RNA: c-di-GMP-II-GAG riboswitch aptamer
RNA sequence: AGGGAACCGGGGGUCCAGCAGCGCGGCGUCCAGUCACGGUCGCCAUCCGACGCGCUGUGCCAAUGGCGAGACCGACCCCUCCGU
Dot-bracket structure: .(.(.(..((.(((......(((((.((.........[[[[[[[...)).)))))...)))...]]]]]..]]..))..).).)